RNA sequence: CUGCAAGCCUCCAGCGUGCUUGGGUCUGGGGUGGCCCUAUGCAUUCCUACAGAGCUUGCGAGAACAUUUUGGAAUGGUAUGAGGCCUUGCCCUGCUGUCUCCAGAGCAAGGUUGUAGAAAUUUCAGACAGUC
Dot-bracket structure: ..((((((........(((..(((((......)))))...)))..........))))))..........(((((..........((((((.(((.......))).)))))).........))))).......